Rfam assigns this 133-nucleotide RNA from Jaculus jaculus to the family "Small nucleolar RNA SNORA9". Gene Ontology terms of the family: nucleolus and RNA processing. Rfam describes the family as follows. ACA9 is a member of the H/ACA class of snoRNA that guide the sites of modification of uridines to pseudouridines. The organism belongs to Jaculus, within Eukaryota.
RNA sequence: CACCAAGCCUCGAGUGCACUCGGGUCUGCAGUGACCCUGUGCACUGCUACAGUGCUUGUCAGAACAGCUUGUGAGAUGGCUUCAGACUUUGUUCUGCCUUCUCCAGGACAAGUUAUAAAACCUUCAGACAAUA
Numbered sequence: 001c002a003c004c005a006a007g008c009c010u011c012g013a014g015u016g017c018a019c020u021c022g023g024g025u026c027u028g029c030a031g032u033g034a035c036c037c038u039g040u041g042c043a044c045u046g047c048u049a050c051a052g053u054g055c056u057u058g059u060c061a062g063a064a065c066a067g068c069u070u071g072u073g074a075g076a077u078g079g080c081u082u083c084a085g086a087c088u089u090u091g092u093u094c095u096g097c098c099u100u101c102u103c104c105a106g107g108a109c110a111a112g113u114u115a116u117a118a119a120a121c122c123u124u125c126a127g128a129c130a131a132u133a
Stems, first nucleotide, its partner, number of pairs: 004058005019041001022037005072126004087112001089111004094106003

Its Rfam clan is "SNORA9 clan".